[Rfam]
RNA sequence: CAAGGCGAUCCAGAAAAGCAUGACGUUGUAUUCAUAAUAUACUGACAAAAUAACCUUGAAAUCGUGAGGGAUGACCUCAUCUAAUCUCCAGUAGCAAUUUUGUUCAGUAUUUGGAGGUGUUAUGCGUCUGGAUCGUCUUAC
Numbered sequence: 001c002a003a004g005g006c007g008a009u010c011c012a013g014a015a016a017a018g019c020a021u022g023a024c025g026u027u028g029u030a031u032u033c034a035u036a037a038u039a040u041a042c043u044g045a046c047a048a049a050a051u052a053a054c055c056u057u058g059a060a061a062u063c064g065u066g067a068g069g070g071a072u073g074a075c076c077u078c079a080u081c082u083a084a085u086c087u088c089c090a091g092u093a094g095c096a097a098u099u100u101u102g103u104u105c106a107g108u109a110u111u112u113g114g115a116g117g118u119g120u121u122a123u124g125c126g127u128c129u130g131g132a133u134c135g136u137c138u139u140a141c
Stems, first nucleotide, its partner, number of pairs: 002139011016127001018125003022121003026044001028042003032039001054069005070081004084118007091110003
RNA: Yersinia sRNA 155(RyfD)